The record is a 56-nucleotide RNA, which matches "nadA riboswitch" in Rfam. The base pairs follow the family's consensus structure, which is taken from published work. Rfam's curators put it in the seed alignment. Rfam classes the family as a small RNA.
RNA sequence: GGCUUCAACAUCCCCGCCGGUUGGGCGUCAUACGACGCAGUGAAUCGGCUGGAGCC
Numbered sequence: 001g002g003c004u005u006c007a008a009c010a011u012c013c014c015c016g017c018c019g020g021u022u023g024g025g026c027g028u029c030a031u032a033c034g035a036c037g038c039a040g041u042g043a044a045u046c047g048g049c050u051g052g053a054g055c056c
Stems, first nucleotide, its partner, number of pairs: 001056007013042001014040001016049007023041001025038005